[Rfam]
RNA sequence: GCACCUAAAUCUUUCCCACUCCUGUGACCCCGUGCGGGAGUGGUGACAAAUGGUGCUACAGAAUGGCAGAGGAAAUCCAGACAGGUCGCUACACCAAUCAUCCAGGCACCUGUCCCUACAACUCUGCAACAUGU
Numbered sequence: 001g002c003a004c005c006u007a008a009a010u011c012u013u014u015c016c017c018a019c020u021c022c023u024g025u026g027a028c029c030c031c032g033u034g035c036g037g038g039a040g041u042g043g044u045g046a047c048a049a050a051u052g053g054u055g056c057u058a059c060a061g062a063a064u065g066g067c068a069g070a071g072g073a074a075a076u077c078c079a080g081a082c083a084g085g086u087c088g089c090u091a092c093a094c095c096a097a098u099c100a101u102c103c104a105g106g107c108a109c110c111u112g113u114c115c116c117u118a119c120a121a122c123u124c125u126g127c128a129a130c131a132u133g134u
Base pairs, nucleotide, nucleotide: 001056002055003054004053005052013046014045016043017042018041019040021038022037066127067126068125069124070123071122080114081113082112083111084110085109086108094106095105
RNA: Small nucleolar RNA SNORA55